[Rfam]
RNA sequence: UACAGAGUAAUAGUAAAGCGUUAAGUGCCUAAUCAUGGGAUGUUUGAUUAGGACGAACACAUAAUAUGUGGCGGUUUUUCUAUUUGUCCGCUGUA
Numbered sequence: 001u002a003c004a005g006a007g008u009a010a011u012a013g014u015a016a017a018g019c020g021u022u023a024a025g026u027g028c029c030u031a032a033u034c035a036u037g038g039g040a041u042g043u044u045u046g047a048u049u050a051g052g053a054c055g056a057a058c059a060c061a062u063a064a065u066a067u068g069u070g071g072c073g074g075u076u077u078u079u080c081u082a083u084u085u086g087u088c089c090g091c092u093g094u095a
Stems, first nucleotide, its partner, number of pairs: 001095005010083004015078004019073003025054002028052007038089005058070004
The family of this 95-nucleotide sequence from Acholeplasma palmae is "THF (Tetrahydrofolate) riboswitch aptamer". NCBI's taxonomy places the organism under Bacteria, Mycoplasmatota, Acholeplasmatales, Acholeplasmataceae, Acholeplasma palmae. For this family Rfam cites "A eubacterial riboswitch class that senses the coenzyme tetrahydrofolate" (Ames et al., Chem Biol, 2010). Rfam links the family to the GO term tetrahydrofolate metabolic process. Tetrahydrofolate (THF) riboswitch was first reported for Ames et al. as an RNA motif in 5' untranslated (5'-UTR)regions of folate transport and biosynthesis genes in Firmicutes genomes. A search with the family's covariance model found it, with a score of 71 bits.